[Rfam]
RNA sequence: CACCCAUCACGACAGGCGCGAUGCGCCGGCUGGAAUUGGAACAGGGGCCAGCCAGGUGCGUGGUGGGGAAGCGCGGGGGCCGGUAGUCGGGGGACUGCCGGCCCCUCUUUU
Numbered sequence: 001c002a003c004c005c006a007u008c009a010c011g012a013c014a015g016g017c018g019c020g021a022u023g024c025g026c027c028g029g030c031u032g033g034a035a036u037u038g039g040a041a042c043a044g045g046g047g048c049c050a051g052c053c054a055g056g057u058g059c060g061u062g063g064u065g066g067g068g069a070a071g072c073g074c075g076g077g078g079g080c081c082g083g084u085a086g087u088c089g090g091g092g093g094a095c096u097g098c099c100g101g102c103c104c105c106u107c108u109u110u111u
Base pairs, nucleotide, nucleotide: 003067004066005065006064007063008062009061010060011059012057013056015027016026017025018024019023028053029052030051031050032049033048036045037044075106076105077104078103079102080101081100082099083098084097085096086095087094088093
This 111-nucleotide RNA sequence from Xanthomonas sp. XNM01 belongs to the Rfam family "Xanthomonadaceae sRNA asX1". The family's RNA type in Rfam is small RNA. The match comes from Rfam's covariance-model search (100 bits). The organism belongs to Xanthomonas, within Bacteria.